[Rfam]
A member of the RNA family "TPP riboswitch aptamer (THI element)" from Hyphomonas chukchiensis, 99 nucleotides long. It scores 63 bits against the family's covariance model. NCBI's taxonomy places the organism under Bacteria, Pseudomonadati, Alphaproteobacteria, Hyphomonadales, Hyphomonas.

RNA sequence: ACCGUAUCCGAGGGGUGUCCGCGAUGGUCGCGGGCUGAGAGUUACCCUUUGAACCUGAUCCGGCUCAUACCGGCGCGAGGGACGGAGGACAGACUUGAC
Numbered sequence: 001a002c003c004g005u006a007u008c009c010g011a012g013g014g015g016u017g018u019c020c021g022c023g024a025u026g027g028u029c030g031c032g033g034g035c036u037g038a039g040a041g042u043u044a045c046c047c048u049u050u051g052a053a054c055c056u057g058a059u060c061c062g063g064c065u066c067a068u069a070c071c072g073g074c075g076c077g078a079g080g081g082a083c084g085g086a087g088g089a090c091a092g093a094c095u096u097g098a099c
Stems, first nucleotide, its partner, number of pairs: 007086004011048004017035007054080003060073004